Record summary: This 176-nucleotide RNA sequence from Tetzosporium hominis belongs to the Rfam family "Lysine riboswitch aptamer". Lineage of the source: Bacteria > Bacillati > Bacillota > Caryophanaceae > Tetzosporium. The match comes from Rfam's covariance-model search (126 bits).

RNA sequence: CGUGAAGAUAGAGGUGCGAACGUCAACAGUACGGUUUCGGAGGAUGACAGAUCCUGUGAAGAACUCGGAAAGGGGCAAUCGCCGAAAUGAAGGUCUGCUGAUCCAGUCCUUCGUUGGUCUUGUGUUGAACAAACCCAAGAUUGUCAGAAUACACAUUCUGGAGGGCUAUCUUACAU
Numbered sequence: 001c002g003u004g005a006a007g008a009u010a011g012a013g014g015u016g017c018g019a020a021c022g023u024c025a026a027c028a029g030u031a032c033g034g035u036u037u038c039g040g041a042g043g044a045u046g047a048c049a050g051a052u053c054c055u056g057u058g059a060a061g062a063a064c065u066c067g068g069a070a071a072g073g074g075g076c077a078a079u080c081g082c083c084g085a086a087a088u089g090a091a092g093g094u095c096u097g098c099u100g101a102u103c104c105a106g107u108c109c110u111u112c113g114u115u116g117g118u119c120u121u122g123u124g125u126u127g128a129a130c131a132a133a134c135c136c137a138a139g140a141u142u143g144u145c146a147g148a149a150u151a152c153a154c155a156u157u158c159u160g161g162a163g164g165g166c167u168a169u170c171u172u173a174c175a176u
Stems, first nucleotide, its partner, number of pairs: 006171006016082004022076003032067003036063003086115008095106003116142007124134003144161007